[Rfam]
RNA sequence: AUAAUAUAUGAUUAUUUUUUUCAGACCUGUUGGUGUGUGGGGAAAAAUCGUUGGAUCACUAUGUGCCAUUGCUGGAGUUUUGACAAUAGCUCUGCCGGUUCCAGUCAUUGUAUCGAAU
Numbered sequence: 001a002u003a004a005u006a007u008a009u010g011a012u013u014a015u016u017u018u019u020u021u022c023a024g025a026c027c028u029g030u031u032g033g034u035g036u037g038u039g040g041g042g043a044a045a046a047a048u049c050g051u052u053g054g055a056u057c058a059c060u061a062u063g064u065g066c067c068a069u070u071g072c073u074g075g076a077g078u079u080u081u082g083a084c085a086a087u088a089g090c091u092c093u094g095c096c097g098g099u100u101c102c103a104g105u106c107a108u109u110g111u112a113u114c115g116a117a118u
Base pairs, nucleotide, nucleotide: 001118002117007112008111009110010109011108014105015104016103023100024099041081042080043079044078053067054066
Shown here is a 118-nucleotide RNA from Cotesia congregata, a member of the family "Potassium channel RNA editing signal". By type it is a cis-regulatory element. The family has 85 seed sequences and 14,095 matches in Rfam 15.1. The organism belongs to Cotesia, within Eukaryota. This family represents a group of sequences related to the human potassium channel Kv1.1 hairpin element which directs the efficient modification of an adenosine to inosine by an adenosine deaminase acting on RNA (ADAR). The ADAR modification causes an isoleucine/valine recoding event which lies in the ion-conducting pore of the potassium channel. It is thought that this editing event targets the process of fast inactivation and allows a more rapid recovery from inactivation at negative potentials. The match comes from Rfam's covariance-model search (62 bits).